Bacterial RNase P class A: a 387-nucleotide sequence from Candidatus Pantoea carbekii. Taxonomically the source falls in Pantoea (Bacteria, Pseudomonadati, Pseudomonadota, Enterobacterales).
RNA sequence: GAAACUGACUAGACAGUCGCUGCUUUUUCAUAAAGUUAUUGAGUAAUAUAUGUAUAAGGAAGGAGAGGAAAGUCCGGGCUCCAUAGGGCAUGGGUGCCAGGUAACACCUGGGAAGCGAGAGCUUACGACUAGUGCAACAGAAAAUAAACCGCCAGAGAUCUUUUUUAUUUAAUUUAGAUCAGGUAAGGGUGAAAAGGUGCGGUAAAAGCGCACCGCAUGACUGGUAACAGAUCAUGGCAUGGUAAACUCCACCUGGAGCAAGACCAAACAAGGUUUGAAUGUAUGGCCCGUACUUGACCUGGGUAGGUUGCUUGAGCUAAUAAGCGAUUAUUGGCCUAGAUGAAUGACUGUCCACGACAGAACCCGGCUUAUCGGUCAGUUUCACCU
Number, nucleotide and partner (000 for none) at each position: 001g383002a382003a381004a380005c379006u378007g377008a376009c375010u374011a372012g352013a351014c350015a349016g348017u347018c346019g000020c065021u064022g000023c062024u061025u060026u059027u058028u057029c000030a000031u000032a000033a000034a000035g000036u000037u000038a000039u000040u000041g000042a000043g000044u000045a000046a000047u000048a000049u000050a000051u000052g000053u000054a000055u000056a000057a028058g027059g026060a025061a024062g023063g000064a021065g020066a000067g000068g000069a000070a370071a369072g368073u000074c367075c366076g365077g364078g363079c258080u257081c256082c255083a000084u000085a000086g289087g288088g287089c286090a000091u000092g254093g253094g252095u251096g250097c111098c110099a109100g108101g107102u000103a000104a000105c000106a000107c101108c100109u099110g098111g097112g126113a124114a123115g122116c121117g000118a000119g000120a000121g116122c115123u114124u113125a000126c112127g249128a248129c000130u000131a000132g247133u246134g243135c242136a000137a000138c000139a000140g000141a000142a000143a000144a000145u000146a000147a000148a000149c188150c187151g184152c183153c182154a000155g000156a000157g180158a179159u178160c177161u176162u000163u000164u000165u000166u000167a000168u000169u000170u000171a000172a000173u000174u000175u000176a161177g160178a159179u158180c157181a000182g153183g152184u151185a000186a000187g150188g149189g000190u000191g000192a000193a000194a000195a000196g214197g213198u212199g211200c210201g209202g000203u000204a000205a000206a000207a000208g000209c201210g200211c199212a198213c197214c196215g238216c236217a235218u234219g233220a232221c230222u229223g228224g000225u000226a000227a000228c223229a222230g221231a000232u220233c219234a218235u217236g216237g000238c215239a000240u000241g000242g135243u134244a000245a000246a133247c132248u128249c127250c096251a095252c094253c093254u092255g082256g081257a080258g079259c000260a000261a000262g309263a308264c307265c306266a000267a000268a000269c000270a000271a300272g299273g298274u297275u296276u000277g000278a000279a000280u000281g293282u292283a291284u290285g000286g089287c088288c087289c086290g284291u283292a282293c281294u000295u000296g275297a274298c273299c272300u271301g000302g000303g000304u000305a000306g265307g264308u263309u262310g000311c000312u000313u000314g000315a000316g335317c334318u333319a332320a331321u330322a329323a328324g000325c000326g000327a000328u323329u322330a321331u320332u319333g318334g317335c316336c000337u000338a000339g000340a000341u000342g000343a000344a000345u000346g018347a017348c016349u015350g014351u013352c012353c000354a000355c000356g000357a000358c000359a000360g000361a000362a000363c078364c077365c076366g075367g074368c072369u071370u070371a000372u011373c000374g010375g009376u008377c007378a006379g005380u004381u003382u002383c001384a000385c000386c000387u000